Rfam assigns this 143-nucleotide sequence from Rhizoctonia solani to the family "Group II catalytic intron D1-D4-7". Lineage of the source: Eukaryota > Opisthokonta > Fungi > Basidiomycota > Rhizoctonia solani AG-1.
RNA sequence: CCAAGUAAUCCAUUACUUGAGCCUAAACAGCAUGCUAUCGAAGUAAUUUUAUAGCGUGAAGCCUGUGAAUUCUCUAAUAAAAAUAAGUCAGAUUGAUAUAAAUCGACGGAUAGAUACUGCCAAGCAUGCUUGGCAGUCGCUAU
Numbered sequence: 001c002c003a004a005g006u007a008a009u010c011c012a013u014u015a016c017u018u019g020a021g022c023c024u025a026a027a028c029a030g031c032a033u034g035c036u037a038u039c040g041a042a043g044u045a046a047u048u049u050u051a052u053a054g055c056g057u058g059a060a061g062c063c064u065g066u067g068a069a070u071u072c073u074c075u076a077a078u079a080a081a082a083a084u085a086a087g088u089c090a091g092a093u094u095g096a097u098a099u100a101a102a103u104c105g106a107c108g109g110a111u112a113g114a115u116a117c118u119g120c121c122a123a124g125c126a127u128g129c130u131u132g133g134c135a136g137u138c139g140c141u142a143u
Stems, first nucleotide, its partner, number of pairs: 002019006027066004031058008040049003074087002077084002090111001096103002117136006